[Rfam]
Small nucleolar RNA SNORD121A: an 83-nucleotide RNA sequence from Puma concolor.
Nucleotides: 083
Base pairs, nucleotide, nucleotide: 001083002082003081004079005078006077008075009074010073011072
Number, partner (000 for none) and nucleotide at each position: 001083c002082u003081g004079g005078g006077a007000a008075a009074g010073a011072c012000a013000a014000u015000g016000a017000u018000g019000c020000u021000u022000u023000a024000u025000u026000u027000c028000c029000a030000a031000g032000c033000a034000c035000a036000u037000a038000u039000c040000u041000g042000a043000g044000u045000u046000g047000u048000a049000u050000g051000u052000g053000u054000g055000g056000a057000u058000a059000g060000a061000a062000g063000u064000g065000a066000a067000a068000c069000u070000g071000a072011g073010u074009c075008u076000u077006u078005c079004u080000a081003c082002a083001g
For this family Rfam cites "snoSeeker: an advanced computational package for screening of guide and orphan snoRNA genes in the human genome" (Yang et al., Nucleic Acids Res, 2006). It is annotated as a C/D-box small nucleolar RNA. The family's consensus secondary structure was predicted with WAR. Rfam 15.1 lists 881 matches to the family in 444 species. Its family is annotated with nucleolus and RNA processing in the Gene Ontology.